[Rfam]
RNA sequence: GAAGCGGGAACCCGGCACGGCCACGGCCGGUCAGACCGGGACCCUCGCCCCGAGAGGGACGACUGCA
Numbered sequence: 001g002a003a004g005c006g007g008g009a010a011c012c013c014g015g016c017a018c019g020g021c022c023a024c025g026g027c028c029g030g031u032c033a034g035a036c037c038g039g040g041a042c043c044c045u046c047g048c049c050c051c052g053a054g055a056g057g058g059a060c061g062a063c064u065g066c067a
Base pairs, nucleotide, nucleotide: 011040012039013038014037015036018029019028020027021026045062046061047060049058050057051056